RNA: U7 small nuclear RNA
Nucleotides: 054
Base pairs, nucleotide, nucleotide: 031051032050033049034048035047036046037045038044
Number, partner (000 for none) and nucleotide at each position: 001000g002000a003000a004000a005000u006000u007000u008000g009000c010000u011000c012000u013000u014000u015000u016000a017000c018000u019000a020000u021000u022000u023000g024000u025000c026000c027000a028000g029000u030000a031051g032050g033049u034048u035047u036046c037045c038044u039000u040000u041000a042000a043000a044038a045037g046036g047035a048034a049033g050032c051031c052000c053000a054000c